[Rfam]
RNA: Fluoride riboswitch aptamer (crcB RNA motif)
RNA sequence: AGAUUAACAGGAAAUGGUGUCUUCCUGCUCAAAAACCGCCCACUCAGGGCUGAUGGCGCCUACAAAUAG
Numbered sequence: 001a002g003a004u005u006a007a008c009a010g011g012a013a014a015u016g017g018u019g020u021c022u023u024c025c026u027g028c029u030c031a032a033a034a035a036c037c038g039c040c041c042a043c044u045c046a047g048g049g050c051u052g053a054u055g056g057c058g059c060c061u062a063c064a065a066a067u068a069g
Stems, first nucleotide, its partner, number of pairs: 010025004016060006038050004